Rfam assigns this 103-nucleotide sequence from Rossellomorea aquimaris to the family "SAM riboswitch aptamer (S box leader)". The base pairs follow the family's consensus structure, which is taken from published work. NCBI's taxonomy places the organism under Bacteria, Bacillati, Bacilli, Bacillaceae, Rossellomorea.

RNA sequence: UUCUUAUCAAGAGAGGUAGAGGGACUGGCCCUGUGACACCUCAGCAACCAGCAUUGUGCAUGGUGCUAAUUCCAGCAAGUUGAUUCAACUUGGCCGAUAAGAG
Numbered sequence: 001u002u003c004u005u006a007u008c009a010a011g012a013g014a015g016g017u018a019g020a021g022g023g024a025c026u027g028g029c030c031c032u033g034u035g036a037c038a039c040c041u042c043a044g045c046a047a048c049c050a051g052c053a054u055u056g057u058g059c060a061u062g063g064u065g066c067u068a069a070u071u072c073c074a075g076c077a078a079g080u081u082g083a084u085u086c087a088a089c090u091u092g093g094c095c096g097a098u099a100a101g102a103g
Stems, first nucleotide, its partner, number of pairs: 001103008013042005021031003025075004043067004048063002051059003076092006